[Rfam]
RNA sequence: UGACACUACCCUGGAGAGACUCAUUUAAUUGAGCAUCGACGAAGAAACUUAUGAUUAAUAAGGAAACUUUCAGAUAAAAGGACAGGGAAUAAAAA
Numbered sequence: 001u002g003a004c005a006c007u008a009c010c011c012u013g014g015a016g017a018g019a020c021u022c023a024u025u026u027a028a029u030u031g032a033g034c035a036u037c038g039a040c041g042a043a044g045a046a047a048c049u050u051a052u053g054a055u056u057a058a059u060a061a062g063g064a065a066a067c068u069u070u071c072a073g074a075u076a077a078a079a080g081g082a083c084a085g086g087g088a089a090u091a092a093a094a095a
Stems, first nucleotide, its partner, number of pairs: 007089001009087005020033004035075003038071002042069003048062005

Background:
Glycine riboswitch aptamer: a 95-nucleotide RNA from Clostridium sp. 'deep sea'. Taxonomically the source falls in Clostridium (Bacteria, Bacillati, Clostridia, Clostridiaceae). A search with the family's covariance model found it, with a score of 62 bits. About the family: This family represents the bacterial glycine riboswitch.